[Rfam]
RNA: UnaL2 LINE 3' element
Organism: Synaphobranchus kaupii
RNA sequence: AAUUAAACGUUGUGUAAGUCACUCUGGAUAAGAGCGUCUGCUAAAUGUAAUGUA
Numbered sequence: 001a002a003u004u005a006a007a008c009g010u011u012g013u014g015u016a017a018g019u020c021a022c023u024c025u026g027g028a029u030a031a032g033a034g035c036g037u038c039u040g041c042u043a044a045a046u047g048u049a050a051u052g053u054a
Stems, first nucleotide, its partner, number of pairs: 013043001014041003020036001022034004